[Rfam]
RNA sequence: UACACGGUGGCAGUGUGGUUAGCUGGUUGUGUUUUUAUAUCACGACCACUAUCCAUACUACCUUCAUGAA
Numbered sequence: 001u002a003c004a005c006g007g008u009g010g011c012a013g014u015g016u017g018g019u020u021a022g023c024u025g026g027u028u029g030u031g032u033u034u035u036u037a038u039a040u041c042a043c044g045a046c047c048a049c050u051a052u053c054c055a056u057a058c059u060a061c062c063u064u065c066a067u068g069a070a
Stems, first nucleotide, its partner, number of pairs: 003068002006065001009062002012059007020051003024048008
RNA: mir-34 microRNA precursor family
Organism: Zophobas morio